[Rfam]
RNA sequence: GCUUUCUCCCAGGUAUAGACUGGGUGAUAAGCGAAGGUCAUCAGGCGGUCAACCUGGUGGCCUUCAUUUUUUAUUU
Numbered sequence: 001g002c003u004u005u006c007u008c009c010c011a012g013g014u015a016u017a018g019a020c021u022g023g024g025u026g027a028u029a030a031g032c033g034a035a036g037g038u039c040a041u042c043a044g045g046c047g048g049u050c051a052a053c054c055u056g057g058u059g060g061c062c063u064u065c066a067u068u069u070u071u072u073a074u075u076u
Stems, first nucleotide, its partner, number of pairs: 001032003006026001008024005034064012
RNA: ctRNA